Small nucleolar RNA SNORD45: an 81-nucleotide RNA sequence from Steatornis caripensis. Gene Ontology terms of the family: nucleolus and RNA processing. For this family Rfam cites "Purified box C/D snoRNPs are able to reproduce site-specific 2'-O-methylation of target RNA in vitro" (Galardi et al., Mol Cell Biol, 2002). Pairs were carried over by alignment from the consensus structure, which was predicted with PFOLD.

[Rfam]
RNA sequence: GGUCUGUGAUGAGUUUUGGCAUGUAUUAUCGGAGCGUCAGUGAAGAUUGGCAGUUUAGCUCUAGAAUUACUCUGAGACCUA
Numbered sequence: 001g002g003u004c005u006g007u008g009a010u011g012a013g014u015u016u017u018g019g020c021a022u023g024u025a026u027u028a029u030c031g032g033a034g035c036g037u038c039a040g041u042g043a044a045g046a047u048u049g050g051c052a053g054u055u056u057a058g059c060u061c062u063a064g065a066a067u068u069a070c071u072c073u074g075a076g077a078c079c080u081a
Base pairs, nucleotide, nucleotide: 001079002078003077004076
Dot-bracket structure: ((((.......................................................................))))..